[Rfam]
RNA sequence: UUCAGUGAACACACAAGUGUGCCUGCCAAUUCCCUUGGUUUUAACUCUGCUCCAGCAGGGUCUGUUCUUUUCCUCUGCAUUGAAAGGAGUUUUUAUCCUUCUAAAUAUAUUCAGGAAGUCUGCAUAUGA
Numbered sequence: 001u002u003c004a005g006u007g008a009a010c011a012c013a014c015a016a017g018u019g020u021g022c023c024u025g026c027c028a029a030u031u032c033c034c035u036u037g038g039u040u041u042u043a044a045c046u047c048u049g050c051u052c053c054a055g056c057a058g059g060g061u062c063u064g065u066u067c068u069u070u071u072c073c074u075c076u077g078c079a080u081u082g083a084a085a086g087g088a089g090u091u092u093u094u095a096u097c098c099u100u101c102u103a104a105a106u107a108u109a110u111u112c113a114g115g116a117a118g119u120c121u122g123c124a125u126a127u128g129a
Base pairs, nucleotide, nucleotide: 003049004048005047007046011042014037015036016035017034019032021030054066055065056064057063074115075114076113077112079106080105081104082102084100085099086098087097088096
The record is a 129-nucleotide sequence from Oryctolagus cuniculus, which matches "Small nucleolar RNA SNORA22" in Rfam. NCBI's taxonomy places the organism under Eukaryota, Tetrapoda, Boreoeutheria, Lagomorpha, Oryctolagus. The base pairs follow the family's consensus structure, which was predicted with RNAfold. ACA22 is a member of the H/ACA class of snoRNA that guide the sites of modification of uridines to pseudouridines. A search with the family's covariance model found it, with a score of 86 bits.